[Rfam]
L31-Actinobacteria ribosomal protein leader: a 74-nucleotide sequence. A reference for the family is Eckert and Weinberg (2020), "Discovery of 20 novel ribosomal leader candidates in bacteria and archaea", BMC Microbiol. By type it is a cis-regulatory leader.

RNA sequence: GCGGUACCGGUUCACGCUCUGCUGGCUCCUGGGGGGACGACCCCCCAGCCCCCCAGCAAGGCGACCCGGCGACC
Numbered sequence: 001g002c003g004g005u006a007c008c009g010g011u012u013c014a015c016g017c018u019c020u021g022c023u024g025g026c027u028c029c030u031g032g033g034g035g036g037a038c039g040a041c042c043c044c045c046c047a048g049c050c051c052c053c054c055a056g057c058a059a060g061g062c063g064a065c066c067c068g069g070c071g072a073c074c
Stems, first nucleotide, its partner, number of pairs: 003074003007069004015063004020058006
Dot-bracket structure: ..(((.((((....((((.((((((...........................)))))).))))..))))..)))